[Rfam]
The record is a 102-nucleotide RNA sequence from Ethanoligenens harbinense, which matches "THF (Tetrahydrofolate) riboswitch aptamer" in Rfam.

RNA sequence: GGCAAAGUAGAUGGCCGCGCGUCAAGUGCCAGUUGGACGGGAAGUUGCCACUGGACGAAAAACCCCAUGGGGUUUGCGGUGCCGCCAUCGCAUUCCGUUGUC
Numbered sequence: 001g002g003c004a005a006a007g008u009a010g011a012u013g014g015c016c017g018c019g020c021g022u023c024a025a026g027u028g029c030c031a032g033u034u035g036g037a038c039g040g041g042a043a044g045u046u047g048c049c050a051c052u053g054g055a056c057g058a059a060a061a062a063c064c065c066c067a068u069g070g071g072g073u074u075u076g077c078g079g080u081g082c083c084g085c086c087a088u089c090g091c092a093u094u095c096c097g098u099u100g101u102c
Base pairs, nucleotide, nucleotide: 001102002101003100004099005098010089011088012087013086014085015084017082018081019080020078021077022076026056027055029054030053031052032051033050035049036048040095041094042093044091060075061074062073063072
Lineage of the source: Bacteria > Bacillati > Bacillota > Eubacteriales > Ethanoligenens harbinense. Pairs were carried over by alignment from the consensus structure, which is taken from published work. Rfam describes the family as follows. Tetrahydrofolate (THF) riboswitch was first reported for Ames et al. as an RNA motif in 5' untranslated (5'-UTR)regions of folate transport and biosynthesis genes in Firmicutes genomes.